[Rfam]
Nucleotides: 062
Base pairs, nucleotide, nucleotide: 004052005051006050007049008048010026011025012024013023014022037062038061039060040059041058042057043055044054
Number, partner (000 for none) and nucleotide at each position: 001000u002000c003000a004052c005051g006050u007049u008048c009000a010026c011025c012024u013023c014022g015000u016000c017000u018000u019000c020000g021000g022014c023013g024012a025011g026010g027000c028000g029000c030000a031000g032000u033000u034000c035000g036000a037062c038061u039060c040059a041058g042057g043055c044054c045000a046000u047000g048008g049007a050006a051005c052004g053000g054044g055043g056000a057042c058041c059040u060039g061038a062037g